A member of the RNA family "DUF3800-VII RNA", 87 nucleotides long.
[Rfam]
RNA sequence: CGCAGACAAACGCAGGGUUUGUAGAGGUCGCCGGCAACGGUGGCAGCCCGAACGGGUGGGAUCCUCGAACUUGGGGUCUGCAAACAG
Numbered sequence: 001c002g003c004a005g006a007c008a009a010a011c012g013c014a015g016g017g018u019u020u021g022u023a024g025a026g027g028u029c030g031c032c033g034g035c036a037a038c039g040g041u042g043g044c045a046g047c048c049c050g051a052a053c054g055g056g057u058g059g060g061a062u063c064c065u066c067g068a069a070c071u072u073g074g075g076g077u078c079u080g081c082a083a084a085c086a087g
Stems, first nucleotide, its partner, number of pairs: 002081006011074001013073004022068001024066003027044007047056003
It is annotated as a small RNA.